[Rfam]
RNA sequence: GUGUUUUAAUGAUGGUCUGUCUUUAAACUCGAGAGGGAGCUGACCUGAUAUCCAACAC
Numbered sequence: 001g002u003g004u005u006u007u008a009a010u011g012a013u014g015g016u017c018u019g020u021c022u023u024u025a026a027a028c029u030c031g032a033g034a035g036g037g038a039g040c041u042g043a044c045c046u047g048a049u050a051u052c053c054a055a056c057a058c
Stems, first nucleotide, its partner, number of pairs: 001058005014045004019040002022037002028035002
The family of this 58-nucleotide RNA from Sparus aurata is "Selenocysteine insertion sequence 1". The family's consensus secondary structure is taken from published work. NCBI's taxonomy places the organism under Eukaryota, Eumetazoa, Actinopteri, Clupeocephala, Sparus. Rfam links the family to the GO term selenocysteine incorporation. The match comes from Rfam's covariance-model search (40 bits).